[Rfam]
RNA sequence: CGGGGCGGCACGCCUAAUCCCCUCCCCUGGGGAGCCGGGGACCCGCCAGUGGCCGCAGGCCAUCCCGGGGUGAAUCCGAGCCACGGCUCGGUAGGGCUGCUCCGGCCCGAACCCGUCAGCUAACCCGGUAGGCGGCCAUGAGAGGAGCU
Number, nucleotide and partner (000 for none) at each position: 001c000002g000003g000004g000005g000006c000007g000008g000009c000010a000011c134012g133013c132014c131015u000016a000017a000018u033019c032020c031021c030022c029023u000024c000025c000026c000027c000028u000029g022030g021031g020032g019033a018034g129035c128036c127037g126038g125039g124040g000041a000042c000043c000044c067045g066046c000047c000048a000049g000050u000051g000052g000053c000054c000055g000056c000057a000058g000059g000060c000061c000062a000063u000064c000065c000066c045067g044068g114069g113070g112071u000072g000073a000074a000075u000076c091077c090078g089079a088080g000081c000082c000083a000084c000085g000086g000087c000088u079089c078090g077091g076092u000093a000094g108095g107096g106097c105098u000099g000100c000101u000102c000103c000104g000105g097106c096107c095108c094109g000110a000111a000112c070113c069114c068115g000116u000117c000118a000119g000120c000121u000122a000123a000124c039125c038126c037127g036128g035129u034130a000131g014132g013133c012134g011135g000136c000137c000138a000139u000140g000141a000142g000143a000144g000145g000146a000147g000148c000149u000
Annotation: A member of the RNA family "c-di-AMP riboswitch aptamer (ydaO/yuaA leader)" from Nonomuraea endophytica, 149 nucleotides long. The match comes from Rfam's covariance-model search (82 bits). Rfam describes the family as follows. This family represents a conserved RNA structure found upstream of the ydaO and yuaA genes in Bacillus subtilis and related genes in other bacteria. Taxonomically the source falls in Nonomuraea (Bacteria, Bacillati, Actinomycetota, Actinomycetes).